[Rfam]
RNA sequence: AGGGGAGGCUGGAUCCCGGGCUGUGUCCCCGGCGCCCUGUGCUCCUGGGCCUGUGCUUUUGGAAUCGCGCUCGGGGCCGCGCAGCCCACU
Numbered sequence: 001a002g003g004g005g006a007g008g009c010u011g012g013a014u015c016c017c018g019g020g021c022u023g024u025g026u027c028c029c030c031g032g033c034g035c036c037c038u039g040u041g042c043u044c045c046u047g048g049g050c051c052u053g054u055g056c057u058u059u060u061g062g063a064a065u066c067g068c069g070c071u072c073g074g075g076g077c078c079g080c081g082c083a084g085c086c087c088a089c090u
Stems, first nucleotide, its partner, number of pairs: 001090002003087003008082002010079003015076002019072002022069004026063002029061001031057005039051001041050003

mir-8799 microRNA precursor family: a 90-nucleotide RNA sequence from Canis lupus. The organism belongs to Canis lupus, within Eukaryota. Rfam links the family to the GO terms miRNA-mediated post-transcriptional gene silencing and RISC complex. Pairs were carried over by alignment from the consensus structure, which was predicted with RNAalifold.